The record is a 62-nucleotide RNA sequence from Thermobaculum terrenum, which matches "Fluoride riboswitch aptamer (crcB RNA motif)" in Rfam. Lineage of the source: Bacteria > Thermobaculales (SeqCode) > Thermobaculaceae (SeqCode) > Thermobaculum (SeqCode) > Thermobaculum terrenum.
[Rfam]
RNA sequence: CUGAAUACAGGCGAUGAAGCUCGCCUUAAGCGCCGCACAAGGCUGAUAGCUUCUACCAAGAU
Number, nucleotide and partner (000 for none) at each position: 001c000002u000003g000004a000005a000006u000007a000008c000009a000010g025011g024012c023013g022014a000015u000016g053017a052018a051019g050020c049021u048022c013023g012024c011025c010026u000027u000028a000029a000030g000031c000032g043033c042034c041035g000036c000037a000038c000039a000040a000041g034042g033043c032044u000045g000046a000047u000048a021049g020050c019051u018052u017053c016054u000055a000056c000057c000058a000059a000060g000061a000062u000